[Rfam]
RNA: Small nucleolar RNA Z159/U59
Organism: Prunus persica
RNA sequence: GCCUCUGAUGAUGAUCCAUAAAUAACUUUCGUUCUUCCGAGAUGCUCCAUGCGGAUAAAAUUUGGAGACCUGAACUGAAGAGGA
Numbered sequence: 001g002c003c004u005c006u007g008a009u010g011a012u013g014a015u016c017c018a019u020a021a022a023u024a025a026c027u028u029u030c031g032u033u034c035u036u037c038c039g040a041g042a043u044g045c046u047c048c049a050u051g052c053g054g055a056u057a058a059a060a061u062u063u064g065g066a067g068a069c070c071u072g073a074a075c076u077g078a079a080g081a082g083g084a
Stems, first nucleotide, its partner, number of pairs: 003082004